[Rfam]
RNA sequence: CUUUGCUGAGUCUUGGCACUGGGAGAAUUCACAGGAGUUAUAUAAGUAUACCCGUGAGUUUCCUGAUGCCUUAGCUCAGUGCGU
Numbered sequence: 001c002u003u004u005g006c007u008g009a010g011u012c013u014u015g016g017c018a019c020u021g022g023g024a025g026a027a028u029u030c031a032c033a034g035g036a037g038u039u040a041u042a043u044a045a046g047u048a049u050a051c052c053c054g055u056g057a058g059u060u061u062c063c064u065g066a067u068g069c070c071u072u073a074g075c076u077c078a079g080u081g082c083g084u
Stems, first nucleotide, its partner, number of pairs: 004081007015070004020065003023061001025060002029057004034052001

A member of the RNA family "mir-263 microRNA precursor family" from Brenthis ino, 84 nucleotides long. A search with the family's covariance model found it, with a score of 59 bits. Gene Ontology terms of the family: RISC complex and miRNA-mediated post-transcriptional gene silencing. The family is grouped with related families in Rfam's "mir-182 clan". The family has 52 seed sequences and 368 matches in Rfam 15.1.